Plastid-psbA-1 3UTR RNA: a 112-nucleotide RNA sequence from Solanum commersonii. Rfam classes the family as a cis-regulatory element. On this family, see Richter et al., Plant Commun 2023: "Retrograde signaling in plants: A critical review focusing on the GUN pathway and beyond". Plastid psbA-1 is a non-coding RNA (ncRNA) present in plastids. The base pairs follow the family's consensus structure, which was predicted with LocARNA. Clan: Plastid-psbA 3UTR RNA clan.
Nucleotides: 112
Stems, first nucleotide, its partner, number of pairs: 007022005060112012074099003078095005
Number, partner (000 for none) and nucleotide at each position: 001000u002000c003000g004000a005000g006000c007022u008021c009020c010019a011018u012000c013000u014000a015000c016000a017000a018011a019010u020009g021008g022007a023000u024000a025000a026000g027000a028000u029000c030000c031000c032000a033000g034000c035000c036000u037000a038000g039000u040000c041000u042000a043000u044000a045000g046000g047000a048000g049000g050000u051000u052000u053000u054000g055000a056000a057000a058000a059000g060112a061111a062110a063109g064108g065107a066106g067105c068104a069103a070102u071101a072000a073000u074099c075098a076097u077000u078095u079094u080093c081092u082091u083000g084000u085000u086000u087000u088000g089000u090000c091082a092081a093080g094079a095078g096000g097076g098075u099074g100000c101071u102070a103069u104068u105067g106066c107065u108064c109063c110062u111061u112060u